Shown here is a 95-nucleotide RNA from Nyssa sinensis, a member of the family "Plastid-rpl20 3UTR RNA". Rfam describes the family as follows. Plastid rpl20 is a non-coding RNA (ncRNA) recognised in plastids. A reference for the family is Richter et al. (2023), "Retrograde signaling in plants: A critical review focusing on the GUN pathway and beyond", Plant Commun. Taxonomically the source falls in Nyssa (Eukaryota, Viridiplantae, Pentapetalae, Nyssaceae).
[Rfam]
RNA sequence: ACAGAGUUCCCCGGAGAAUGAACUCCGGGAAGGUAGAGUAGAAAUUAAUAUGAUAAAAUAUGAUAAAGUAGUCAAAAUGAAUGAACACGUUCAAU
Numbered sequence: 001a002c003a004g005a006g007u008u009c010c011c012c013g014g015a016g017a018a019u020g021a022a023c024u025c026c027g028g029g030a031a032g033g034u035a036g037a038g039u040a041g042a043a044a045u046u047a048a049u050a051u052g053a054u055a056a057a058a059u060a061u062g063a064u065a066a067a068g069u070a071g072u073c074a075a076a077a078u079g080a081a082u083g084a085a086c087a088c089g090u091u092c093a094a095u
Base pairs, nucleotide, nucleotide: 007031008030010029011028012027013026014025015024016023079092080091081090082089
Rfam 15.1 lists 587 matches to the family in 315 species.
The family's RNA type in Rfam is cis-regulatory element.